Overview
The family of this 215-nucleotide RNA from Pseudomonas mangiferae is "sucA-II RNA". Pairs were carried over by alignment from the consensus structure, which is taken from published work. The source organism's lineage runs through Bacteria, Pseudomonadati, Pseudomonadota, Pseudomonadales and Pseudomonas. It scores 105 bits against the family's covariance model.
RNA sequence: CCGUCGCAGCGGAACGCCAACCACUGCGGGGGAUAACCCGAGCCGCGGCCCACAAAGCCGCGGCUCCAUCGCAAAUAUGUUGACCAGCAGGGGCGGCCGGGCCGCAAGCCCGGACCAUCUGCGGGAUCCGCGGUGGACUUGUACGAGUUCCGUUCCGGGCUCGGCAGGACACGCUUCGGUCACUGCCGGUGGCGUCCCCUUAUCGAGGGUGACCU
Dot-bracket structure: ((.((((((.((........)).)))))).))........((((((.((.......)).)))))).......................(((((((.(((((.......))))).(((((.(((.((.((..((((..((((...(((((........)))))..))))...))))..))))..))).))))))).)))))...............